Background
Whalefall-1 RNA: a 58-nucleotide RNA from Tolypothrix sp. NIES-4075. The organism belongs to Tolypothrix, within Bacteria.

RNA sequence: UUCCCUCCCCUAUGAGGGGAGGGACGAUUUUGACGUUAGUCAAAAUCAGGGAGAGGUC
Numbered sequence: 001u002u003c004c005c006u007c008c009c010c011u012a013u014g015a016g017g018g019g020a021g022g023g024a025c026g027a028u029u030u031u032g033a034c035g036u037u038a039g040u041c042a043a044a045a046u047c048a049g050g051g052a053g054a055g056g057u058c
Stems, first nucleotide, its partner, number of pairs: 004022007026047009